[Rfam]
RNA: Streptomyces-metH RNA
RNA sequence: CUGUCCCGCGUCGUGGACUGCCCGACCACUUCUGCACGGACCCGGCUACGCUGGCGGCGUGCGCCCACAGCGGACCGUUCCGUGCCGGGUGCAAAGCCGACAGCCGUCGCACUCCAGGGAGCCCUUUCAUG
Numbered sequence: 001c002u003g004u005c006c007c008g009c010g011u012c013g014u015g016g017a018c019u020g021c022c023c024g025a026c027c028a029c030u031u032c033u034g035c036a037c038g039g040a041c042c043c044g045g046c047u048a049c050g051c052u053g054g055c056g057g058c059g060u061g062c063g064c065c066c067a068c069a070g071c072g073g074a075c076c077g078u079u080c081c082g083u084g085c086c087g088g089g090u091g092c093a094a095a096g097c098c099g100a101c102a103g104c105c106g107u108c109g110c111a112c113u114c115c116a117g118g119g120a121g122c123c124c125u126u127u128c129a130u131g
Stems, first nucleotide, its partner, number of pairs: 060093004065088002096110002099108003